[Rfam]
RNA sequence: GAAAAAUGAUGAUACUUCCUAUGUCCUAUGGUUAUAGUGAAGACCUCAGAUCCAACUCUGAUUUCACUCUAGUU
Numbered sequence: 001g002a003a004a005a006a007u008g009a010u011g012a013u014a015c016u017u018c019c020u021a022u023g024u025c026c027u028a029u030g031g032u033u034a035u036a037g038u039g040a041a042g043a044c045c046u047c048a049g050a051u052c053c054a055a056c057u058c059u060g061a062u063u064u065c066a067c068u069c070u071a072g073u074u
Stems, first nucleotide, its partner, number of pairs: 001065004
RNA: Small nucleolar RNA SNORD19